[Rfam]
RNA: mir-458 microRNA precursor family
Organism: Cyprinodon variegatus
RNA sequence: AUGCUUACCGCAGUACCAUUAAAAGAGCUAUGAAAAUAUUUACACUUAUAGCUCUUAAAAUGGCGCUAGGGUCAGCAA
Numbered sequence: 001a002u003g004c005u006u007a008c009c010g011c012a013g014u015a016c017c018a019u020u021a022a023a024a025g026a027g028c029u030a031u032g033a034a035a036a037u038a039u040u041u042a043c044a045c046u047u048a049u050a051g052c053u054c055u056u057a058a059a060a061u062g063g064c065g066c067u068a069g070g071g072u073c074a075g076c077a078a
Stems, first nucleotide, its partner, number of pairs: 002077003007072003012067002016063005024055008